[Rfam]
RNA sequence: CAGGUCGAGAGGCGCUGCAACGGGCCGGAGGGGUCCGCCACGCUCGGCCUGACGCACUAGACCGCAAGGGCGCCUCCGGAUU
Numbered sequence: 001c002a003g004g005u006c007g008a009g010a011g012g013c014g015c016u017g018c019a020a021c022g023g024g025c026c027g028g029a030g031g032g033g034u035c036c037g038c039c040a041c042g043c044u045c046g047g048c049c050u051g052a053c054g055c056a057c058u059a060g061a062c063c064g065c066a067a068g069g070g071c072g073c074c075u076c077c078g079g080a081u082u
Stems, first nucleotide, its partner, number of pairs: 002050007021037006